[Rfam]
This 37-nucleotide RNA sequence from Rhodospirillum centenum belongs to the Rfam family "CRISPR RNA direct repeat element". Its family is annotated with defense response in the Gene Ontology.
RNA sequence: GCUUUCCCCGGCAGAAAUGCCGGGGCCUCAUUGAAGC
Numbered sequence: 001g002c003u004u005u006c007c008c009c010g011g012c013a014g015a016a017a018u019g020c021c022g023g024g025g026c027c028u029c030a031u032u033g034a035a036g037c
Stems, first nucleotide, its partner, number of pairs: 006025007

The family has 6 seed sequences and 1,291 matches in Rfam 15.1. The match comes from Rfam's covariance-model search (41 bits).